[Rfam]
RNA sequence: UUGCCUCAAAUUAAUGAGUAAGGAUAAUAUAGGAUUUGGGUGAUACCUUAUCCACAUAUACUUUCAGUAUAUGAGGUUCACCAAAUAUUUGGCGGGGUAAAGGUCGGCCUUGAUAGGUUCCUUCCUACAUUCGAAGGUUCCAGUCGAGAUUGCUGACCUCCUG
Number, nucleotide and partner (000 for none) at each position: 001u000002u000003g000004c023005c022006u021007c000008a019009a000010a000011u000012u000013a000014a000015u000016g000017a000018g000019u008020a000021a006022g005023g004024a000025u000026a000027a000028u000029a000030u000031a000032g053033g052034a051035u050036u000037u000038g047039g046040g000041u000042g000043a000044u000045a000046c039047c038048u000049u000050a035051u034052c033053c032054a000055c000056a000057u000058a000059u000060a000061c000062u000063u000064u000065c000066a000067g000068u000069a000070u000071a000072u000073g000074a000075g000076g000077u000078u000079c000080a000081c000082c000083a000084a000085a000086u000087a000088u000089u000090u000091g000092g000093c000094g000095g162096g161097g160098u000099a000100a000101a000102g158103g157104u156105c155106g154107g153108c152109c000110u000111u146112g145113a000114u143115a000116g141117g140118u000119u000120c137121c136122u135123u134124c133125c000126u000127a000128c000129a000130u000131u000132c000133g124134a123135a122136g121137g120138u000139u000140c117141c116142a000143g114144u000145c112146g111147a000148g000149a000150u000151u000152g108153c107154u106155g105156a104157c103158c102159u000160c097161c096162u095163g000
This 163-nucleotide RNA sequence from Glomus cerebriforme belongs to the Rfam family "U12 minor spliceosomal RNA".
By type it is a spliceosomal small nuclear RNA.
The pairing is the family consensus, mapped onto this sequence.
A search with the family's covariance model found it, with a score of 71 bits.